[Rfam]
RNA: Plastid-psbA-1 3UTR RNA
Organism: Striga hermonthica
RNA sequence: UUGUUGCUCACUUCAAUCCAGACUUUGGUAGUUAGUGUAUAGGAGGUUUUGAAAAUAGAAUAUAAAUAUAAGGAGCAAUAAACUCUUUCUUCUUCUAUCAAGAGGGAUUAUUGCUCCUUU
Numbered sequence: 001u002u003g004u005u006g007c008u009c010a011c012u013u014c015a016a017u018c019c020a021g022a023c024u025u026u027g028g029u030a031g032u033u034a035g036u037g038u039a040u041a042g043g044a045g046g047u048u049u050u051g052a053a054a055a056u057a058g059a060a061u062a063u064a065a066a067u068a069u070a071a072g073g074a075g076c077a078a079u080a081a082a083c084u085c086u087u088u089c090u091u092c093u094u095c096u097a098u099c100a101a102g103a104g105g106g107a108u109u110a111u112u113g114c115u116c117c118u119u120u
Stems, first nucleotide, its partner, number of pairs: 010017001070119012083106002087104005